[Rfam]
RNA sequence: UUUUCGAUGGGAGAUGGCAUGCCUCCUGUCCCAACCGCCGCAAGGCUGAUGAUGCCUACGCCACC
Numbered sequence: 001u002u003u004u005c006g007a008u009g010g011g012a013g014a015u016g017g018c019a020u021g022c023c024u025c026c027u028g029u030c031c032c033a034a035c036c037g038c039c040g041c042a043a044g045g046c047u048g049a050u051g052a053u054g055c056c057u058a059c060g061c062c063a064c065c
Base pairs, nucleotide, nucleotide: 010026011025012024013023016056017055018054019053020052037046038045039044
Fluoride riboswitch aptamer (crcB RNA motif): a 65-nucleotide sequence from Frateuria aurantia. Pairs were carried over by alignment from the consensus structure, which is taken from published work. Taxonomically the source falls in Frateuria aurantia (Bacteria, Pseudomonadati, Gammaproteobacteria, Frateuria). The match comes from Rfam's covariance-model search (50 bits).